[Rfam]
RNA sequence: CAGCGGGACACCUCUCCCCAACGAGAGGCCUCUAUCUGGAAGGGUAGCUCCA
Numbered sequence: 001c002a003g004c005g006g007g008a009c010a011c012c013u014c015u016c017c018c019c020a021a022c023g024a025g026a027g028g029c030c031u032c033u034a035u036c037u038g039g040a041a042g043g044g045u046a047g048c049u050c051c052a
Base pairs, nucleotide, nucleotide: 011028012027013026014025015024016023032047033046034045035044036043037042